RNA: Histone 3' UTR stem-loop
Organism: Eptatretus burgeri
RNA sequence: CAAACGGCCCUUUUCAGGGCCACAAAUUCACAAGAAAUAUGUAU
Numbered sequence: 001c002a003a004a005c006g007g008c009c010c011u012u013u014u015c016a017g018g019g020c021c022a023c024a025a026a027u028u029c030a031c032a033a034g035a036a037a038u039a040u041g042u043a044u
Stems, first nucleotide, its partner, number of pairs: 006021006